About this RNA: The family of this 231-nucleotide part of an RNA from Bdellovibrio bacteriovorus is "Bacterial large subunit ribosomal RNA". Lineage of the source: Bacteria > Bdellovibrionota > Bdellovibrionia > Bdellovibrionales > Bdellovibrio bacteriovorus.

[Rfam]
RNA sequence: GAGUUAUGUUUGCAUGCGAGGUUAAGCCGUUGCAGGUGGAGCCGUAGCGAAAGCGAGUCUGAAUAGGGCGAUUUAGUAUGCAGGCAUAGACCCGAAACCCGGUGAUCUAAUCAUGGACAGGUUGAAGCGAGGGUAACACCUCGUGGAGGACCGAACAAGUUGAGGUUGAAAACUCUUUUGAUGAUCUGUGAUUAGGGGUGAAAGGCCAAUCAAACUGGGUGAUAGCUGGUU
Numbered sequence: 001g002a003g004u005u006a007u008g009u010u011u012g013c014a015u016g017c018g019a020g021g022u023u024a025a026g027c028c029g030u031u032g033c034a035g036g037u038g039g040a041g042c043c044g045u046a047g048c049g050a051a052a053g054c055g056a057g058u059c060u061g062a063a064u065a066g067g068g069c070g071a072u073u074u075a076g077u078a079u080g081c082a083g084g085c086a087u088a089g090a091c092c093c094g095a096a097a098c099c100c101g102g103u104g105a106u107c108u109a110a111u112c113a114u115g116g117a118c119a120g121g122u123u124g125a126a127g128c129g130a131g132g133g134u135a136a137c138a139c140c141u142c143g144u145g146g147a148g149g150a151c152c153g154a155a156c157a158a159g160u161u162g163a164g165g166u167u168g169a170a171a172a173c174u175c176u177u178u179u180g181a182u183g184a185u186c187u188g189u190g191a192u193u194a195g196g197g198g199u200g201a202a203a204g205g206c207c208a209a210u211c212a213a214a215c216u217g218g219g220u221g222a223u224a225g226c227u228g229g230u231u
Stems, first nucleotide, its partner, number of pairs: 005088013020043004026037003047054002057069004091229002094226001098219006107195011118183001120152004127144006156180003162175003197207003